ASpks TB sRNA: a 75-nucleotide RNA from Longimycelium tulufanense.
[Rfam]
RNA sequence: CUUCAAGGACCCCAACCACAGCGGAUCGUCGACGGCGCGGCCCUGGCCGUAGGUCGCCAGGAUCGCCUGCGCCUC
Numbered sequence: 001c002u003u004c005a006a007g008g009a010c011c012c013c014a015a016c017c018a019c020a021g022c023g024g025a026u027c028g029u030c031g032a033c034g035g036c037g038c039g040g041c042c043c044u045g046g047c048c049g050u051a052g053g054u055c056g057c058c059a060g061g062a063u064c065g066c067c068u069g070c071g072c073c074u075c
Stems, first nucleotide, its partner, number of pairs: 014026001016024002033069001038065002043060003047056001049054001
The match comes from Rfam's covariance-model search (73 bits).